[Rfam]
RNA: c-di-AMP riboswitch aptamer (ydaO/yuaA leader)
Organism: Clostridium sp. HMP27
Nucleotides: 125
Base pairs, nucleotide, nucleotide: 011110012109013108014107019031020030034104035103036102037101038100041049042048050090051089052088058067059066060065070084071083072082073081
Number, partner (000 for none) and nucleotide at each position: 001000c002000u003000u004000a005000c006000a007000a008000a009000g010000a011110u012109g013108c014107c015000g016000a017000a018000u019031c020030u021000c022000c023000u024000u025000u026000a027000u028000g029000g030020a031019g032000u033000a034104c035103g036102g037101g038100g039000g040000a041049u042048a043000u044000c045000c046000u047000a048042u049041g050090g051089g052088g053000u054000g055000a056000a057000u058067c059066u060065u061000u062000u063000a064000a065060a066059a067058g068000u069000a070084g071083g072082g073081u074000a075000c076000c077000u078000c079000u080000a081073a082072c083071c084070c085000g086000a087000a088052c089051c090050c091000g092000u093000c094000a095000a096000c097000u098000a099000a100038c101037c102036u103035c104034g105000g106000a107014g108013g109012c110011a111000a112000a113000a114000u115000g116000g117000a118000g119000g120000u121000a122000u123000a124000a125000a